[Rfam]
The record is a 91-nucleotide sequence from Rattus norvegicus, which matches "mir-3473 microRNA precursor family" in Rfam.
Lineage of the source: Eukaryota > Deuterostomia > Euteleostomi > Murinae > Rattus.
The family's consensus secondary structure was predicted with RNAalifold.

RNA sequence: ACCGCUGAGCCAUCUCUCCAGCCCCUUUAUUUUGGUUUUUCAUUAUCAGCCUAAAAACUGAUGUCAAGGGCUGGAGAGAUGGCUCAGUGGU
Numbered sequence: 001a002c003c004g005c006u007g008a009g010c011c012a013u014c015u016c017u018c019c020a021g022c023c024c025c026u027u028u029a030u031u032u033u034g035g036u037u038u039u040u041c042a043u044u045a046u047c048a049g050c051c052u053a054a055a056a057a058c059u060g061a062u063g064u065c066a067a068g069g070g071c072u073g074g075a076g077a078g079a080u081g082g083c084u085c086a087g088u089g090g091u
Base pairs, nucleotide, nucleotide: 002090003089004088005087006086007085008084009083010082011081012080013079014078015077016076017075018074019073020072021071022070023069024068